[Rfam]
RNA sequence: GACCUGCCCCGGCUCCCGGCCUCCAGCCGACCGGUUCCCGACACGACUUCCCCCGUGCCGGGCCCCGGACGGAUGGGGACCAGGGGCCGGGGCACAGGACCA
Dot-bracket structure: .........(((((((.((.(((((.(((.((((..((((.(((..........))).))))..)))).))).))))).)).))))))).............
Description: This 102-nucleotide RNA sequence from Knoellia locipacati belongs to the Rfam family "mraW RNA". It scores 58 bits against the family's covariance model. The family's RNA type in Rfam is cis-regulatory element. The base pairs follow the family's consensus structure, which is taken from published work. Lineage of the source: Bacteria > Bacillati > Actinomycetota > Intrasporangiaceae > Knoellia.